[Rfam]
RNA sequence: ACGGAAGCUCGGCAAGGCCUAGGUCGAUCCGGAAGAGAAGGUUCGGUCUCCCAACCCGGGCACCCAGCACGGUUCCCGGCACCCACGCCGAGUCAUAGCCGCGAUAAUGGCAGAAGUGUUGCGGGCCUGCGUAACUGCGAAGAUUGAAUGUGUCGACGGCCCUUUGGGUGGGGCUGCAGCAGAAGACUUCGCAGGAUCGCCGAGGCCACCCACGCAACCCACAGAUGCACGCUUGGUAACCGAGAACCGUGUUGGCGGGCGGCGAUUCGAAUUCUUCGGUCGCCGCCCGCUUUACAUU
Numbered sequence: 001a002c003g004g005a006a007g008c009u010c011g012g013c014a015a016g017g018c019c020u021a022g023g024u025c026g027a028u029c030c031g032g033a034a035g036a037g038a039a040g041g042u043u044c045g046g047u048c049u050c051c052c053a054a055c056c057c058g059g060g061c062a063c064c065c066a067g068c069a070c071g072g073u074u075c076c077c078g079g080c081a082c083c084c085a086c087g088c089c090g091a092g093u094c095a096u097a098g099c100c101g102c103g104a105u106a107a108u109g110g111c112a113g114a115a116g117u118g119u120u121g122c123g124g125g126c127c128u129g130c131g132u133a134a135c136u137g138c139g140a141a142g143a144u145u146g147a148a149u150g151u152g153u154c155g156a157c158g159g160c161c162c163u164u165u166g167g168g169u170g171g172g173g174c175u176g177c178a179g180c181a182g183a184a185g186a187c188u189u190c191g192c193a194g195g196a197u198c199g200c201c202g203a204g205g206c207c208a209c210c211c212a213c214g215c216a217a218c219c220c221a222c223a224g225a226u227g228c229a230c231g232c233u234u235g236g237u238a239a240c241c242g243a244g245a246a247c248c249g250u251g252u253u254g255g256c257g258g259g260c261g262g263c264g265a266u267u268c269g270a271a272u273u274c275u276u277c278g279g280u281c282g283c284c285g286c287c288c289g290c291u292u293u294a295c296a297u298u
Stems, first nucleotide, its partner, number of pairs: 003064002007061006016052002021049002025045003029041002065254009077242003083236003087232002092228002098111003118218006124207005129200003135194006145186001149181003157176007255290011267279003
Shown here is a 298-nucleotide RNA from Mycobacterium spongiae, a member of the family "Mycobacterium smegmatis small RNA 1". The source organism's lineage runs through Bacteria, Bacillati, Mycobacteriales, Mycobacteriaceae and Mycobacterium. Mycobacterium smegmatis small RNA 1 is highly expressed during stationary phase of growth. Ms1 RNA directly interacts with RNA polymerase (RNAP), but in a different way than 6S, which is present in other bacteria. The base pairs follow the family's consensus structure, which was predicted with CMfinder. The match comes from Rfam's covariance-model search (233 bits).